[Rfam]
RNA sequence: CUGAACACUCUGGAAAGCGUUCCGGCUGCCUGAAUAAGGAUUGGGCCGGGACCACCGAAGGGGUAACUCCAUGCCCAUCCCUGUUCGAGGGCGCGUGGAGGAAAACUCUCAGGUUCCCGUGACAGAGGGGGCAUG
Numbered sequence: 001c002u003g004a005a006c007a008c009u010c011u012g013g014a015a016a017g018c019g020u021u022c023c024g025g026c027u028g029c030c031u032g033a034a035u036a037a038g039g040a041u042u043g044g045g046c047c048g049g050g051a052c053c054a055c056c057g058a059a060g061g062g063g064u065a066a067c068u069c070c071a072u073g074c075c076c077a078u079c080c081c082u083g084u085u086c087g088a089g090g091g092c093g094c095g096u097g098g099a100g101g102a103a104a105a106c107u108c109u110c111a112g113g114u115u116c117c118c119g120u121g122a123c124a125g126a127g128g129g130g131g132c133a134u135g
Base pairs, nucleotide, nucleotide: 006129008127009126010125011124012123019052020051021050022049023048024047025046026045027044054114055113056112057110058109061108062107063106067101068100
A member of the RNA family "Glycine riboswitch aptamer" from Sphingopyxis witflariensis, 135 nucleotides long.
The organism belongs to Sphingopyxis, within Bacteria.